[Rfam]
Overview:
MIR159 microRNA precursor family: a 191-nucleotide RNA sequence from Brassica carinata. Rfam links the family to the GO terms miRNA-mediated post-transcriptional gene silencing and RISC complex. The organism belongs to Brassica, within Eukaryota. The family's consensus secondary structure was predicted with WAR. On this family, see Jones-Rhoades and Bartel, Mol Cell 2004: "Computational identification of plant microRNAs and their targets, including a stress-induced miRNA". The family has 66 seed sequences and 3,649 matches in Rfam 15.1. The match comes from Rfam's covariance-model search (95 bits).
Nucleotides: 191
Base pairs, nucleotide, nucleotide: 013177014176015175016174017173019171020170024166025165026164027163028162029161036154058132061129062128063127067123068122069121075115
Number, partner (000 for none) and nucleotide at each position: 001000c002000a003000a004000a005000a006000g007000a008000a009000g010000a011000g012000g013177g014176a015175g016174c017173u018000c019171c020170c021000u022000u023000c024166a025165g026164u027163c028162c029161a030000a031000u032000c033000a034000g035000a036154g037000a038000g039000a040000a041000u042000c043000a044000a045000u046000g047000a048000c049000c050000c051000a052000a053000u054000u055000u056000g057000u058132c059000c060000a061129c062128c063127g064000c065000a066000u067123c068122a069121u070000a071000c072000a073000u074000u075115c076000a077000u078000u079000u080000a081000a082000c083000g084000a085000g086000u087000u088000a089000g090000u091000u092000u093000g094000a095000a096000u097000u098000u099000u100000g101000g102000u103000a104000a105000c106000u107000c108000g109000g110000u111000a112000u113000u114000u115075g116000g117000a118000u119000g120000a121069a122068u123067g124000a125000g126000u127063c128062g129061g130000a131000a132058g133000c134000u135000a136000a137000u138000u139000g140000g141000a142000u143000c144000a145000u146000a147000u148000c149000a150000c151000a152000a153000c154036c155000u156000g157000u158000g159000a160000a161029u162028g163027g164026a165025c166024u167000c168000a169000a170020g171019g172000a173017a174016g175015c176014u177013c178000u179000c180000u181000a182000u183000c184000u185000a186000u187000c188000g189000a190000u191000u